[Rfam]
RNA sequence: GAAGCAAGCCGGAUCGUCGCUGCCCCAUGCGAAUGGGGGGGAGGAAAGUCCGGGCUCCACAGGGCAGGAUGCCGGCUAACGGCCGGGCGGCGUGAGCCGACGGAAAGUGGAACAGAGAGCUGAACCGCCGAUGGCGAUGUCCCACCCGCAAGGGCGGGCCCAGUUGAACGCACGAUUGAAGCGUGCGGGAUGGCGCACAGGCAAGGGUGAAAAGGUGUUCCCGUCAGGGAGUCCCCCUCAGGGACGGUAAGAGCGCACCGCAGGACUGGCGACAGGACUGGCAGGCUAAACCCCAUCCGGAGCAAGACCAAGCAGCAGGCGUUGAAACGGCCCGUCGAGCCUGCGGGUAGGUUGCACGAGUGCACCGGCAACGGUGUGCCUAGAGGAAUGACGGUCGCGUGAGGUUCGCCAAGCGCACAGAACCCGGCUUACAGGCUUGCUUCGCAG
Numbered sequence: 001g002a003a004g005c006a007a008g009c010c011g012g013a014u015c016g017u018c019g020c021u022g023c024c025c026c027a028u029g030c031g032a033a034u035g036g037g038g039g040g041g042a043g044g045a046a047a048g049u050c051c052g053g054g055c056u057c058c059a060c061a062g063g064g065c066a067g068g069a070u071g072c073c074g075g076c077u078a079a080c081g082g083c084c085g086g087g088c089g090g091c092g093u094g095a096g097c098c099g100a101c102g103g104a105a106a107g108u109g110g111a112a113c114a115g116a117g118a119g120c121u122g123a124a125c126c127g128c129c130g131a132u133g134g135c136g137a138u139g140u141c142c143c144a145c146c147c148g149c150a151a152g153g154g155c156g157g158g159c160c161c162a163g164u165u166g167a168a169c170g171c172a173c174g175a176u177u178g179a180a181g182c183g184u185g186c187g188g189g190a191u192g193g194c195g196c197a198c199a200g201g202c203a204a205g206g207g208u209g210a211a212a213a214g215g216u217g218u219u220c221c222c223g224u225c226a227g228g229g230a231g232u233c234c235c236c237c238u239c240a241g242g243g244a245c246g247g248u249a250a251g252a253g254c255g256c257a258c259c260g261c262a263g264g265a266c267u268g269g270c271g272a273c274a275g276g277a278c279u280g281g282c283a284g285g286c287u288a289a290a291c292c293c294c295a296u297c298c299g300g301a302g303c304a305a306g307a308c309c310a311a312g313c314a315g316c317a318g319g320c321g322u323u324g325a326a327a328c329g330g331c332c333c334g335u336c337g338a339g340c341c342u343g344c345g346g347g348u349a350g351g352u353u354g355c356a357c358g359a360g361u362g363c364a365c366c367g368g369c370a371a372c373g374g375u376g377u378g379c380c381u382a383g384a385g386g387a388a389u390g391a392c393g394g395u396c397g398c399g400u401g402a403g404g405u406u407c408g409c410c411a412a413g414c415g416c417a418c419a420g421a422a423c424c425c426g427g428c429u430u431a432c433a434g435g436c437u438u439g440c441u442u443c444g445c446a447g
Stems, first nucleotide, its partner, number of pairs: 001443010011432001012396007020041002023038006046430003050427005055302004062333004067298005072086005087101001088099004102293002107291002109287002125206002127202003132197002214259004260282001261280003266275003306353004315344006327335002360379008
This 447-nucleotide RNA from Andreprevotia lacus belongs to the Rfam family "Bacterial RNase P class A". Pairs were carried over by alignment from the consensus structure, which is taken from published work. The match comes from Rfam's covariance-model search (249 bits). Gene Ontology terms of the family: dimeric ribonuclease P complex, ribonuclease P activity and tRNA processing. The family is grouped with related families in Rfam's "RNaseP clan". It is annotated as a ribozyme.